[Rfam]
RNA sequence: UAGUGUUACAGUUCUUUUAGAAUUUGUCUAGCAGGCUUUCCAGUUUUUACCAGAAAGCACCC
Numbered sequence: 001u002a003g004u005g006u007u008a009c010a011g012u013u014c015u016u017u018u019a020g021a022a023u024u025u026g027u028c029u030a031g032c033a034g035g036c037u038u039u040c041c042a043g044u045u046u047u048u049a050c051c052a053g054a055a056a057g058c059a060c061c062c
Base pairs, nucleotide, nucleotide: 035058036057037056038055039054040053043050044049
The record is a 62-nucleotide sequence from Piliocolobus tephrosceles, which matches "U7 small nuclear RNA" in Rfam.
NCBI's taxonomy places the organism under Eukaryota, Euteleostomi, Theria, Primates, Piliocolobus.